Overview:
The family of this 49-nucleotide sequence from Sedimentitalea nanhaiensis is "SAM/SAH riboswitch aptamer". It scores 56 bits against the family's covariance model. The base pairs follow the family's consensus structure, which is taken from published work.

[Rfam]
RNA sequence: GACCUGUCACAACGGCUUCCUGACGUGACAGGAUAAACCGAAUGGAGCG
Numbered sequence: 001g002a003c004c005u006g007u008c009a010c011a012a013c014g015g016c017u018u019c020c021u022g023a024c025g026u027g028a029c030a031g032g033a034u035a036a037a038c039c040g041a042a043u044g045g046a047g048c049g
Stems, first nucleotide, its partner, number of pairs: 004031007013022002015048003019045002